RNA sequence: GUCAGCUAAAGGCAAAGAAUCUGAAAGGGUUCGACGCAAAGCCACCGGCCUAACAAGCGCAGAUUGCACGACCGUUCAUACGCUAUCCGGCGUGGUUACUUGUCGCAGUGCUUUAUGGCAGCGGGGCUACCUGA
Dot-bracket structure: ...........((...((((((....))))))...))..((((.((((((....((((((...............................................))))))...)))..)))))))......